[Rfam]
RNA sequence: GUCAAUAACCCACCACUUAGCCUUUUUUAAGGCUUGAAGUGGGGGCUUGGUAAAAGCCCUUGUUGACUACCCUCAGUCUUUUACAGGCUACGUUGGAUAGGUCAUGACACCUACGGAUGCUCCUCAAGUCCGUUGCCCUGUCGUCUAUGGUUAAAAGCUCUUAGGGGUAGGAGCGGUGCUGUAGACAGGACAAUCCUUUCCAACCUUGGGUAUGAGGCUAUUAC
Numbered sequence: 001g002u003c004a005a006u007a008a009c010c011c012a013c014c015a016c017u018u019a020g021c022c023u024u025u026u027u028u029a030a031g032g033c034u035u036g037a038a039g040u041g042g043g044g045g046c047u048u049g050g051u052a053a054a055a056g057c058c059c060u061u062g063u064u065g066a067c068u069a070c071c072c073u074c075a076g077u078c079u080u081u082u083a084c085a086g087g088c089u090a091c092g093u094u095g096g097a098u099a100g101g102u103c104a105u106g107a108c109a110c111c112u113a114c115g116g117a118u119g120c121u122c123c124u125c126a127a128g129u130c131c132g133u134u135g136c137c138c139u140g141u142c143g144u145c146u147a148u149g150g151u152u153a154a155a156a157g158c159u160c161u162u163a164g165g166g167g168u169a170g171g172a173g174c175g176g177u178g179c180u181g182u183a184g185a186c187a188g189g190a191c192a193a194u195c196c197u198u199u200c201c202a203a204c205c206u207u208g209g210g211u212a213u214g215a216g217g218c219u220a221u222u223a224c
Base pairs, nucleotide, nucleotide: 001067002066003065004064005063006062007061008060010045011044013042014041017039018038046056047055048054070210071209072208075089076088077087078086079085092204093203094202095201096200097199099197100196101195107141108140111135113133114132115131116130117129118128122217123216124215125214126213143186144185145184146183147182148181149180150179151178155177157174158173159172160171161170162169163168
Rfam assigns this 224-nucleotide RNA from Neobacillus piezotolerans to the family "HNH endonuclease-associated RNA and ORF (HEARO) RNA". Pairs were carried over by alignment from the consensus structure, which is taken from published work. The family has 139 seed sequences and 952 matches in Rfam 15.1. NCBI's taxonomy places the organism under Bacteria, Bacillati, Bacillota, Bacilli, Neobacillus.